[Rfam]
RNA sequence: UACAUGGAGGAAAUGCCAUGAGAUAGAAUUUCUAUCUGUUCAAAUUGAUGAUUAUUUCCCUGAUUAUCAAUUGGGCUGCGGACUAUGCAUACUCCUCAAU
Numbered sequence: 001u002a003c004a005u006g007g008a009g010g011a012a013a014u015g016c017c018a019u020g021a022g023a024u025a026g027a028a029u030u031u032c033u034a035u036c037u038g039u040u041c042a043a044a045u046u047g048a049u050g051a052u053u054a055u056u057u058c059c060c061u062g063a064u065u066a067u068c069a070a071u072u073g074g075g076c077u078g079c080g081g082a083c084u085a086u087g088c089a090u091a092c093u094c095c096u097c098a099a100u
Base pairs, nucleotide, nucleotide: 003020004019005018006017007016022036023035024034025033026032027031038077040075041074043072044071045070046069047068048067049066050065051064052063053062054061